[Rfam]
RNA sequence: UAUCAAUAAAGCCUUCUCUUCCCAGUUCUUCUUGGAGUCAGGAAAAGCUGGGUUGAGAGGCGCAGAAAAGAAAAAAG
Numbered sequence: 001u002a003u004c005a006a007u008a009a010a011g012c013c014u015u016c017u018c019u020u021c022c023c024a025g026u027u028c029u030u031c032u033u034g035g036a037g038u039c040a041g042g043a044a045a046a047g048c049u050g051g052g053u054u055g056a057g058a059g060g061c062g063c064a065g066a067a068a069a070g071a072a073a074a075a076a077g
Stems, first nucleotide, its partner, number of pairs: 014059005021052005029044006

This 77-nucleotide sequence from Piliocolobus tephrosceles belongs to the Rfam family "mir-320 microRNA precursor family". A search with the family's covariance model found it, with a score of 83 bits. Gene Ontology terms of the family: cellular response to glucose stimulus, negative regulation of gene expression and positive regulation of stem cell proliferation.